Shown here is a 94-nucleotide sequence from Couchioplanes caeruleus, a member of the family "Glycine riboswitch aptamer". The source organism's lineage runs through Bacteria, Bacillati, Micromonosporaceae, Couchioplanes and Couchioplanes caeruleus. The base pairs follow the family's consensus structure. Rfam's curators write: This family represents the bacterial glycine riboswitch.
[Rfam]
Nucleotides: 094
Stems, first nucleotide, its partner, number of pairs: 006089002009086005020037004039074003042070002046068003053061001
Number, partner (000 for none) and nucleotide at each position: 001000a002000c003000c004000a005000c006089c007088c008000a009086c010085g011084c012083g013082g014000g015000a016000g017000a018000g019000a020037c021036c022035g023034c024000c025000g026000g027000u028000u029000c030000g031000c032000c033000g034023g035022u036021g037020g038000c039074g040073c041072c042070g043069a044000a045000g046068g047067g048066g049000c050000a051000a052000a053061u054000c055000c056000u057000c058000c059000c060000c061053g062000g063000a064000a065000c066048c067047u068046c069043u070042c071000a072041g073040g074039c075000a076000a077000a078000a079000g080000g081000a082013c083012c084011g085010c086009g087000g088007g089006g090000g091000c092000a093000g094000g